Overview
Shown here is a 93-nucleotide RNA from Denitrovibrio acetiphilus, a member of the family "Selenocysteine transfer RNA". Clan: tRNA clan. The source organism's lineage runs through Bacteria, Deferribacteres, Geovibrionaceae, Denitrovibrio and Denitrovibrio acetiphilus. A reference for the family is Mizutani and Goto (2000), "Eukaryotic selenocysteine tRNA has the 9/4 secondary structure", FEBS Lett. The base pairs follow the family's consensus structure, which is taken from published work.
Nucleotides: 093
Stems, first nucleotide, its partner, number of pairs: 001093008012027002015024003030044004049067005070084004
Number, partner (000 for none) and nucleotide at each position: 001093g002092g003091g004090g005089g006088c007087g008086u009000u010000u011000g012027g013026g014000a015024u016023g017022c018000u019000g020000g021000u022017g023016c024015a025000c026013u027012c028000c029000g030044c031043g032042g033041u034000c035000u036000u037000c038000a039000a040000a041033a042032c043031c044030g045000a046000u047000u048000g049067u050066g051065a052064c053063g054000g055000g056000u057000u058000u059000u060000g061000c062000c063053c064052g065051u066050c067049a068000g069000g070084c071083a072082g073081g074000u075000u076000c077000g078000a079000u080000u081073c082072c083071u084070g085000u086008g087007c088006g089005c090004c091003u092002c093001c